[Rfam]
RNA sequence: AUGGCAGAUGAUGAAAGAAAUCAGACGGAUUCCCAUUGAUUUCAUUAUAUGAUAUCCUAACCAGCUACUUCUGAGCCAU
Numbered sequence: 001a002u003g004g005c006a007g008a009u010g011a012u013g014a015a016a017g018a019a020a021u022c023a024g025a026c027g028g029a030u031u032c033c034c035a036u037u038g039a040u041u042u043c044a045u046u047a048u049a050u051g052a053u054a055u056c057c058u059a060a061c062c063a064g065c066u067a068c069u070u071c072u073g074a075g076c077c078a079u
Base pairs, nucleotide, nucleotide: 001079002078003077004076005075
Rfam assigns this 79-nucleotide RNA from Turnera subulata to the family "Small nucleolar RNA R12".
The family's consensus secondary structure was predicted with PFOLD.
Rfam links the family to the GO terms nucleolus and RNA processing.
For this family Rfam cites "The high diversity of snoRNAs in plants: identification and comparative study of 120 snoRNA genes from Oryza sativa" (Chen et al., Nucleic Acids Res, 2003).
The match comes from Rfam's covariance-model search (71 bits).
Rfam classes the family as a C/D-box small nucleolar RNA.
Rfam's curators write: snoR12 is a C/D box small nucleolar RNA, which acts as a methylation guide for 25S ribosomal RNA in plants. snoR12 has been alternatively named snoZ44 in Arabidopsis and snoZ131 in rice.